Rfam assigns this 56-nucleotide sequence from Pseudonocardia oroxyli to the family "F6 TB sRNA". The base pairs follow the family's consensus structure, which is taken from published work. Lineage of the source: Bacteria > Actinomycetota > Actinomycetes > Pseudonocardiales > Pseudonocardia. On this family, see Arnvig and Young, Mol Microbiol 2009: "Identification of small RNAs in Mycobacterium tuberculosis".
RNA sequence: GCAGUAGCCCCGCGGCGCUGUCGGACCCCCGACCUGGCAGCUCCGCGGGGUCUUCU
Numbered sequence: 001g002c003a004g005u006a007g008c009c010c011c012g013c014g015g016c017g018c019u020g021u022c023g024g025a026c027c028c029c030c031g032a033c034c035u036g037g038c039a040g041c042u043c044c045g046c047g048g049g050g051u052c053u054u055c056u
Base pairs, nucleotide, nucleotide: 003054004053007051008050009049010048011047012046013045014044015043017041018040019039020038021037022036
Rfam classes the family as a small RNA.